[Rfam]
RNA: Xanthine riboswitch aptamer (NMT1 RNA)
Organism: Paracidovorax avenae
RNA sequence: GGCGAGAGUAGAAGCGUUCAGCAGGGCCGCCACCCCGUUUGCAGGGAGGGCGGCCGGCGGGUCAUUGCUCUUGAA
Numbered sequence: 001g002g003c004g005a006g007a008g009u010a011g012a013a014g015c016g017u018u019c020a021g022c023a024g025g026g027c028c029g030c031c032a033c034c035c036c037g038u039u040u041g042c043a044g045g046g047a048g049g050g051c052g053g054c055c056g057g058c059g060g061g062u063c064a065u066u067g068c069u070c071u072u073g074a075a
Stems, first nucleotide, its partner, number of pairs: 005071006015060001019061001021058002025055007